Shown here is a 261-nucleotide RNA sequence from Lederbergia lenta, a member of the family "BsrG".
The family has 6 seed sequences and 614 matches in Rfam 15.1.
A search with the family's covariance model found it, with a score of 125 bits.
The source organism's lineage runs through Bacteria, Bacillota, Bacilli, Caryophanales and Lederbergia.
Rfam describes the family as follows. bsrE, bsrG and bsrH pair through intermolecular interactions with antisense sRNAs.

[Rfam]
RNA sequence: UGUAAUAGCAUAGGGUAACUCAAGGGUGGUUGGCUCACUCCCACAAGAAAGGGGGUGGUGCCGAUGUCAGUAUUCGAGGCGUUAAUGUUUGCGGUAGCUUUUGCAAGCUUAAUCAUAACGGUUCUGGCAUUUAACCAAAAAAAAUAACCCAUCCUUGAGUUAACGGCUCGUAGGGAUGGGUUAUUCCUGCUCUAUGGAAGCUGAUCCCCCUUGAAGGGAACCUGCUAUUGCUUAAACCGUUUGGUGUUGACGCACCAAACG
Numbered sequence: 001u002g003u004a005a006u007a008g009c010a011u012a013g014g015g016u017a018a019c020u021c022a023a024g025g026g027u028g029g030u031u032g033g034c035u036c037a038c039u040c041c042c043a044c045a046a047g048a049a050a051g052g053g054g055g056u057g058g059u060g061c062c063g064a065u066g067u068c069a070g071u072a073u074u075c076g077a078g079g080c081g082u083u084a085a086u087g088u089u090u091g092c093g094g095u096a097g098c099u100u101u102u103g104c105a106a107g108c109u110u111a112a113u114c115a116u117a118a119c120g121g122u123u124c125u126g127g128c129a130u131u132u133a134a135c136c137a138a139a140a141a142a143a144a145u146a147a148c149c150c151a152u153c154c155u156u157g158a159g160u161u162a163a164c165g166g167c168u169c170g171u172a173g174g175g176a177u178g179g180g181u182u183a184u185u186c187c188u189g190c191u192c193u194a195u196g197g198a199a200g201c202u203g204a205u206c207c208c209c210c211u212u213g214a215a216g217g218g219a220a221c222c223u224g225c226u227a228u229u230g231c232u233u234a235a236a237c238c239g240u241u242u243g244g245u246g247u248u249g250a251c252g253c254a255c256c257a258a259a260c261g
Stems, first nucleotide, its partner, number of pairs: 002231004007226003011220001013202002016199001019159008028149004035058003039055004066128005072122001080093002102120002169189002207218003238261010